[Rfam]
RNA sequence: UGUCCCCAAGCUGGGUAAGGCUGCACCUGGUUUGCUGAUGCUGGUCUCAUAUCAGCCAGGAACAAGGUAACUCCUUGUGUAUCCCAGCUUAGCUUUGGUCUGUGCGCAUGCCUGAUUCAUGCCCUAGCUAGACACAUGG
Numbered sequence: 001u002g003u004c005c006c007c008a009a010g011c012u013g014g015g016u017a018a019g020g021c022u023g024c025a026c027c028u029g030g031u032u033u034g035c036u037g038a039u040g041c042u043g044g045u046c047u048c049a050u051a052u053c054a055g056c057c058a059g060g061a062a063c064a065a066g067g068u069a070a071c072u073c074c075u076u077g078u079g080u081a082u083c084c085c086a087g088c089u090u091a092g093c094u095u096u097g098g099u100c101u102g103u104g105c106g107c108a109u110g111c112c113u114g115a116u117u118c119a120u121g122c123c124c125u126a127g128c129u130a131g132a133c134a135c136a137u138g139g
Stems, first nucleotide, its partner, number of pairs: 001064003005060002011055004019047002023041003027037001076134003080130002092122002096119003101114002104111002
Record summary
Shown here is a 139-nucleotide RNA from Phyllostomus discolor, a member of the family "Small nucleolar RNA SNORA48". The family is grouped with related families in Rfam's "SNORA48 clan". The family's RNA type in Rfam is H/ACA-box small nucleolar RNA. The match comes from Rfam's covariance-model search (78 bits). Lineage of the source: Eukaryota > Craniata > Phyllostomidae > Phyllostominae > Phyllostomus. Rfam describes the family as follows. The snoRNA ACA 48 has been identified to guide pseudouridylation of the residue U3797 in the 28S rRNA subunit. Gene Ontology terms of the family: nucleolus and RNA processing.